[Rfam]
RNA: Rhizobiales sRNA Atu_C8
RNA sequence: CGCCAUGACGAGCACCAUUCUCCUCGUAGGAACGCGCACCAGCCGGGCGGCCGCAUGGGUCGCCGGAAGCAAGCUGGUGCGCGAAAAACAGGCCCUUCCGGGGCCUUUUUAUUGGCCGAAA
Numbered sequence: 001c002g003c004c005a006u007g008a009c010g011a012g013c014a015c016c017a018u019u020c021u022c023c024u025c026g027u028a029g030g031a032a033c034g035c036g037c038a039c040c041a042g043c044c045g046g047g048c049g050g051c052c053g054c055a056u057g058g059g060u061c062g063c064c065g066g067a068a069g070c071a072a073g074c075u076g077g078u079g080c081g082c083g084a085a086a087a088a089c090a091g092g093c094c095c096u097u098c099c100g101g102g103g104c105c106u107u108u109u110u111a112u113u114g115g116c117c118g119a120a121a
Base pairs, nucleotide, nucleotide: 009026029117030116033083034082035081036080037079038078039077040076041075042074046064047063048062049061050060051059052058088107090106091105092104093103094102095101096100